[Rfam]
RNA sequence: UUGUUAAUUAAUGAUAUGAUAGACAAAGUGUCACGUCACCAUGUUUUAUUAUAGACAUCUCAUUGUCAUGUCAUCAGCUUUAGUGAUAUGGCACUGACGUGUUAGUGAUUAGACGUGAUAACGUGACACUUCGUCAUUAUGUCAUCACUUAACGGAA
Numbered sequence: 001u002u003g004u005u006a007a008u009u010a011a012u013g014a015u016a017u018g019a020u021a022g023a024c025a026a027a028g029u030g031u032c033a034c035g036u037c038a039c040c041a042u043g044u045u046u047u048a049u050u051a052u053a054g055a056c057a058u059c060u061c062a063u064u065g066u067c068a069u070g071u072c073a074u075c076a077g078c079u080u081u082a083g084u085g086a087u088a089u090g091g092c093a094c095u096g097a098c099g100u101g102u103u104a105g106u107g108a109u110u111a112g113a114c115g116u117g118a119u120a121a122c123g124u125g126a127c128a129c130u131u132c133g134u135c136a137u138u139a140u141g142u143c144a145u146c147a148c149u150u151a152a153c154g155g156a157a
Stems, first nucleotide, its partner, number of pairs: 001155007009147001011145010022135003026131011038119001040117007048109005054103005070087005
Dot-bracket structure: (((((((.(.((((((((((.(((.(((((((((((.(.(((((((.(((((.(((((...........(((((........)))))...........))))).))))).))))))).).))))))))))).))))))))))))).).)))))))..
RNA: MIR4371 microRNA precursor family
Organism: Glycine soja